[Rfam]
RNA: Small nucleolar RNA SNORA28
RNA sequence: AGUCCACACUCAGUAGCAGAUGAUCCAAAGUGUCUGGUGCAUUUGCAACAGCAAGGCAGUCUAACCUAUUCCGGUGCUCUCUUCUCCAUGAGACAAGCUGUUAUAUAGACUUCAACAGC
Number, nucleotide and partner (000 for none) at each position: 001a000002g000003u000004c000005c000006a000007c000008a000009c000010u000011c039012a000013g000014u000015a038016g000017c036018a035019g034020a033021u032022g031023a000024u000025c000026c000027a000028a000029a000030g000031u022032g021033u020034c019035u018036g017037g000038u015039g011040c000041a000042u000043u000044u000045g000046c000047a000048a000049c000050a000051g000052c000053a000054a000055g000056g000057c000058a111059g110060u109061c108062u107063a106064a000065c000066c000067u105068a104069u103070u000071c000072c100073g099074g098075u097076g000077c000078u000079c000080u093081c092082u091083u090084c000085u000086c000087c000088a000089u000090g083091a082092g081093a080094c000095a000096a000097g075098c074099u073100g072101u000102u000103a069104u068105a067106u063107a062108g061109a060110c059111u058112u000113c000114a000115a000116c000117a000118g000119c000